The record is a 55-nucleotide sequence, which matches "nhaA-I RNA" in Rfam.
By type it is a riboswitch.
Acidobacteria, Alphaproteobacteria, Betaproteobacteria and Gammaproteobacteria, Verrucomicrobia, cand. division NC10.

[Rfam]
RNA sequence: GGGUGCGAUUGAACUGACUCAGUCGCAGGUAUUGCGAAUAGUCGGGCCGCUAUUC
Numbered sequence: 001g002g003g004u005g006c007g008a009u010u011g012a013a014c015u016g017a018c019u020c021a022g023u024c025g026c027a028g029g030u031a032u033u034g035c036g037a038a039u040a041g042u043c044g045g046g047c048c049g050c051u052a053u054u055c
Base pairs, nucleotide, nucleotide: 005026006025007024008023009022010021011020012019036055037054038053039052040051041050042049